[Rfam]
RNA sequence: CUCACCUCUCACAGGGCUUAGAUCAUGUGUAGUAUCUGUUCUAAAUAGAUUGACAUCUAUUUUUCCUUGCUCCGGCGAGGAUAUAAUUGUCAUACACUUUUUCCUUGCGGGAGAUCACCGUUCUGGUGCUUGCACCUCGGGAUCUCAUGGAUGUCCUUGGCCCUACACUUCCGCCUUGAGACGUCCGCCGUCC
Numbered sequence: 001c002u003c004a005c006c007u008c009u010c011a012c013a014g015g016g017c018u019u020a021g022a023u024c025a026u027g028u029g030u031a032g033u034a035u036c037u038g039u040u041c042u043a044a045a046u047a048g049a050u051u052g053a054c055a056u057c058u059a060u061u062u063u064u065c066c067u068u069g070c071u072c073c074g075g076c077g078a079g080g081a082u083a084u085a086a087u088u089g090u091c092a093u094a095c096a097c098u099u100u101u102u103c104c105u106u107g108c109g110g111g112a113g114a115u116c117a118c119c120g121u122u123c124u125g126g127u128g129c130u131u132g133c134a135c136c137u138c139g140g141g142a143u144c145u146c147a148u149g150g151a152u153g154u155c156c157u158u159g160g161c162c163c164u165a166c167a168c169u170u171c172c173g174c175c176u177u178g179a180g181a182c183g184u185c186c187g188c189c190g191u192c193c
Base pairs, nucleotide, nucleotide: 007022008021009020043062044061045060046059047058048057064081065080066079067078068077069076070075111146112145113144114143115142116141118139125136126135127134128133149186150185151184152183153182154181156178159175160174161173